Shown here is an 85-nucleotide RNA from Calidris pygmaea, a member of the family "Small nucleolar RNA SNORD121A".
[Rfam]
RNA sequence: GUCCAAAAUACAGUGAUGAUGUCUUUUCCGAGCACAUAUCAGAUUGCUCUGUAUAGAAAAUGACUGUUACUGAGUGAUUUUGGAU
Number, nucleotide and partner (000 for none) at each position: 001g085002u084003c083004c082005a081006a080007a000008a078009u077010a075011c074012a000013g000014u000015g000016a000017u000018g000019a000020u000021g000022u000023c000024u000025u000026u000027u000028c000029c000030g000031a000032g000033c000034a000035c000036a000037u000038a000039u000040c000041a000042g000043a000044u000045u000046g000047c000048u000049c000050u000051g000052u000053a000054u000055a000056g000057a000058a000059a000060a000061u000062g000063a000064c000065u000066g000067u000068u000069a000070c000071u000072g000073a000074g011075u010076g000077a009078u008079u000080u006081u005082g004083g003084a002085u001